RNA: Plastid-psbA-1 3UTR RNA
RNA sequence: GUUGAAGCUCCAUCUACAAAUGGAUAAGACUUUGGUCUUGGUGUAGUUUUUGAAAGGUAAGGGGAGCAAUAACAACCUCUUGAUAGAACAAGAGUUUUGUUAUUGCUCCUUUUUU
Number, nucleotide and partner (000 for none) at each position: 001g000002u000003u000004g000005a000006a000007g000008c000009u024010c023011c022012a021013u020014c000015u000016a000017c000018a000019a000020a013021u012022g011023g010024a009025u000026a000027a000028g000029a000030c000031u000032u000033u000034g000035g000036u000037c000038u000039u000040g000041g000042u000043g000044u000045a000046g000047u000048u000049u000050u000051u000052g000053a000054a000055a000056g000057g000058u000059a000060a112061g111062g110063g109064g108065a107066g106067c105068a104069a103070u102071a101072a100073c000074a097075a096076c000077c094078u093079c092080u091081u090082g000083a000084u000085a000086g000087a000088a000089c000090a081091a080092g079093a078094g077095u000096u075097u074098u000099g000100u072101u071102a070103u069104u068105g067106c066107u065108c064109c063110u062111u061112u060113u000114u000115u000